[Rfam]
RNA sequence: UUUUUAGGAUAAGUAAAUCCCAUUCAAUAUUUGUGACAUACUUAUCCUAAAA
Numbered sequence: 001u002u003u004u005u006a007g008g009a010u011a012a013g014u015a016a017a018u019c020c021c022a023u024u025c026a027a028u029a030u031u032u033g034u035g036a037c038a039u040a041c042u043u044a045u046c047c048u049a050a051a052a
Stems, first nucleotide, its partner, number of pairs: 006048007014040002018036002021033001022031001
RNA: mir-1302 microRNA precursor family